Shown here is a 171-nucleotide RNA from Sphingomonas sp. Root720, a member of the family "Manganese Mn2+ riboswitch aptamer (yybP-ykoY)".
Pairs were carried over by alignment from the consensus structure.
About the family: This RNA was originally discovered in E. coli during a large scale screen and was named SraF. The family was later found to exist upstream of related families of protein genes in many bacteria, including the the yybP and ykoK genes in B. subtilis. The specific functions of these proteins are unknown, but this structured RNA element may be involved in their genetic regulation as a riboswitch.
For this family Rfam cites "Novel small RNA-encoding genes in the intergenic regions of Escherichia coli" (Argaman et al., Curr Biol, 2001).
Taxonomically the source falls in Sphingomonas (Bacteria, Pseudomonadati, Alphaproteobacteria, Sphingomonadaceae).

RNA sequence: CACCUCGUCAUCCGGGGAGUAGCCGGCCGUCCUUCGGGGCGGAGAUCGCGUCAACAUGCUUGGGGGAGACCCCAUGGUGCGAUCAAGCUCUUGAGCCUUGGCAAGACCGAUGACACCGCACCUUCGUCCAGCCGGGCGGGGGGUGCCGGUGUCGUCCGUCAACUGCCAGCC
Numbered sequence: 001c002a003c004c005u006c007g008u009c010a011u012c013c014g015g016g017g018a019g020u021a022g023c024c025g026g027c028c029g030u031c032c033u034u035c036g037g038g039g040c041g042g043a044g045a046u047c048g049c050g051u052c053a054a055c056a057u058g059c060u061u062g063g064g065g066g067a068g069a070c071c072c073c074a075u076g077g078u079g080c081g082a083u084c085a086a087g088c089u090c091u092u093g094a095g096c097c098u099u100g101g102c103a104a105g106a107c108c109g110a111u112g113a114c115a116c117c118g119c120a121c122c123u124u125c126g127u128c129c130a131g132c133c134g135g136g137c138g139g140g141g142g143g144u145g146c147c148g149g150u151g152u153c154g155u156c157c158g159u160c161a162a163c164u165g166c167c168a169g170c171c
Stems, first nucleotide, its partner, number of pairs: 027042003044084010061074005